[Rfam]
RNA sequence: GCCUAUGAUGAUAUAUAUCCAUGUAUUUGAGGUGUAGUGAGCUUCUGAGACCCUGUUUACAGGGAGAACCCCUCAGAACUUCUACAUUUAAAUGAGAAUACUGGAUCUUCUGAGGC
Numbered sequence: 001g002c003c004u005a006u007g008a009u010g011a012u013a014u015a016u017a018u019c020c021a022u023g024u025a026u027u028u029g030a031g032g033u034g035u036a037g038u039g040a041g042c043u044u045c046u047g048a049g050a051c052c053c054u055g056u057u058u059a060c061a062g063g064g065a066g067a068a069c070c071c072c073u074c075a076g077a078a079c080u081u082c083u084a085c086a087u088u089u090a091a092a093u094g095a096g097a098a099u100a101c102u103g104g105a106u107c108u109u110c111u112g113a114g115g116c
Stems, first nucleotide, its partner, number of pairs: 001116003051064005

A member of the RNA family "Small nucleolar RNA Z278" from Kingdonia uniflora, 116 nucleotides long. For this family Rfam cites "The high diversity of snoRNAs in plants: identification and comparative study of 120 snoRNA genes from Oryza sativa" (Chen et al., Nucleic Acids Res, 2003). Rfam links the family to the GO terms nucleolus and RNA processing. It is annotated as a C/D-box small nucleolar RNA. Rfam 15.1 lists 1,130 matches to the family in 214 species. Lineage of the source: Eukaryota > Streptophytina > Embryophyta > Spermatophyta > Kingdonia. From the family's description: snoZ278 is a C/D box small nucleolar RNA. Its methylation guide targets have not been reported.